[Rfam]
RNA sequence: CCACAUCCACUGAUAGACCUUGAACAACCUGAUGCCGUUUUUUUGGUUUGUACCAAGAUGUGAAAGAAAAAAAAUUCCUGCACUUUCUGUCUUUGUCAUGGCCUACAUUGAAUAGGGGACUAUAUCU
Numbered sequence: 001c002c003a004c005a006u007c008c009a010c011u012g013a014u015a016g017a018c019c020u021u022g023a024a025c026a027a028c029c030u031g032a033u034g035c036c037g038u039u040u041u042u043u044u045g046g047u048u049u050g051u052a053c054c055a056a057g058a059u060g061u062g063a064a065a066g067a068a069a070a071a072a073a074a075u076u077c078c079u080g081c082a083c084u085u086u087c088u089g090u091c092u093u094u095g096u097c098a099u100g101g102c103c104u105a106c107a108u109u110g111a112a113u114a115g116g117g118g119a120c121u122a123u124a125u126c127u
Stems, first nucleotide, its partner, number of pairs: 002062006011052002014050006022040004028034001075119005083110001086107001088105002091101002